A member of the RNA family "Purine riboswitch aptamer" from Mycoplasma todarodis, 98 nucleotides long. The family's consensus secondary structure is taken from published work. From the family's description: Riboswitches are metabolite binding domains within certain messenger RNAs that serve as precision sensors for their corresponding targets. Allosteric rearrangement of mRNA structure is mediated by ligand binding, and this results in modulation of gene expression. A class of riboswitches that selectively recognises guanine and becomes saturated at concentrations as low as 5 nM. In Bacillus subtilis, this mRNA motif is located on at least five separate transcriptional units that together encode 17 genes that are mostly involved in purine transport and purine nucleotide biosynthesis. It has also been shown that some members of this family are specific for adenine instead. Hence this family are termed purine riboswitches.
RNA sequence: UAUAUAAUACUAACACCAAAAGAAUUAAUCUCUUAAUAUGGAAGAGAGUCUCUACGGCGAACCAUUAAUUUGCCACAUUCCUUUUUAUGUAUUUUCUU
Number, nucleotide and partner (000 for none) at each position: 001u000002a000003u000004a000005u000006a000007a000008u000009a000010c000011u000012a000013a000014c000015a000016c000017c000018a084019a083020a082021a000022g080023a079024a078025u077026u000027a000028a000029u047030c046031u045032c044033u043034u042035a000036a000037u000038a000039u000040g000041g000042a034043a033044g032045a031046g030047a029048g000049u000050c000051u000052c000053u000054a000055c000056g074057g073058c072059g071060a070061a069062c000063c000064a000065u000066u000067a000068a000069u061070u060071u059072g058073c057074c056075a000076c000077a025078u024079u023080c022081c000082u020083u019084u018085u000086u000087a000088u000089g000090u000091a000092u000093u000094u000095u000096c000097u000098u000